[Rfam]
RNA: RAGATH-18 RNA
RNA sequence: CCUCCGGAGCGUUAUACCAAACGUGAGUAGCCAGCAACACAGGCAAAAAACGGACGCGAAGAACGAGGAA
Numbered sequence: 001c002c003u004c005c006g007g008a009g010c011g012u013u014a015u016a017c018c019a020a021a022c023g024u025g026a027g028u029a030g031c032c033a034g035c036a037a038c039a040c041a042g043g044c045a046a047a048a049a050a051c052g053g054a055c056g057c058g059a060a061g062a063a064c065g066a067g068g069a070a
Stems, first nucleotide, its partner, number of pairs: 001068004009057005022052003030044003034040001